[Rfam]
RNA sequence: GAGGGCAGGCCCCUCGGAGCCGGUAGUCAGGUGCAGGCUCCAAACCGCCUUGUGCGGCUUUGCUUAAAAGGCAUGGUCGUGAGCGACAAGGAAAAGUUACCGGAAAGGUAGCAGGU
Numbered sequence: 001g002a003g004g005g006c007a008g009g010c011c012c013c014u015c016g017g018a019g020c021c022g023g024u025a026g027u028c029a030g031g032u033g034c035a036g037g038c039u040c041c042a043a044a045c046c047g048c049c050u051u052g053u054g055c056g057g058c059u060u061u062g063c064u065u066a067a068a069a070g071g072c073a074u075g076g077u078c079g080u081g082a083g084c085g086a087c088a089a090g091g092a093a094a095a096g097u098u099a100c101c102g103g104a105a106a107g108g109u110a111g112c113a114g115g116u
Base pairs, nucleotide, nucleotide: 001015002014003013004012005011016041017040018039019038020037021036023034024033025032046115048091049090050089051088052087053086054080055079057077058076059075061073062072063071064070096112097111098110099109100108101107

Source information
This 116-nucleotide RNA sequence from Pontibacter sp. SGAir0037 belongs to the Rfam family "Group II catalytic intron D1-D4-2". On this family, see Bonen and Vogel, Trends Genet 2001: "The ins and outs of group II introns". The match comes from Rfam's covariance-model search (111 bits). Rfam 15.1 lists 1,231 matches to the family in 625 species.